The record is a 126-nucleotide RNA from Odobenus rosmarus, which matches "U4 spliceosomal RNA" in Rfam. The family's RNA type in Rfam is spliceosomal small nuclear RNA. Lineage of the source: Eukaryota > Eumetazoa > Euteleostomi > Pinnipedia > Odobenus rosmarus.
RNA sequence: AGCUUUGCGCAGUGGCAGUAUCGUAGCCAAUGAGGUUUAUCCGAGGCGCGAUUAUUGCUAAUUAAAAAUUUGCCAUUUUUACCAUUUUUGAGAGUGAUAACAUACAUAAAUUAGUCAAAAAUUUGU
Numbered sequence: 001a002g003c004u005u006u007g008c009g010c011a012g013u014g015g016c017a018g019u020a021u022c023g024u025a026g027c028c029a030a031u032g033a034g035g036u037u038u039a040u041c042c043g044a045g046g047c048g049c050g051a052u053u054a055u056u057g058c059u060a061a062u063u064a065a066a067a068a069u070u071u072g073c074c075a076u077u078u079u080u081a082c083c084a085u086u087u088u089u090g091a092g093a094g095u096g097a098u099a100a101c102a103u104a105c106a107u108a109a110a111u112u113a114g115u116c117a118a119a120a121a122u123u124u125g126u
Stems, first nucleotide, its partner, number of pairs: 020052005026047003034042002078119003081115002084112001086110003089106002
About the family: U4 small nuclear RNA (U4 snRNA) is a component of the major U2-dependent spliceosome. A reference for the family is Zhan et al. (2018), "Structures of the human pre-catalytic spliceosome and its precursor spliceosome", Cell Res. The family's consensus secondary structure is taken from published work. The match comes from Rfam's covariance-model search (76 bits).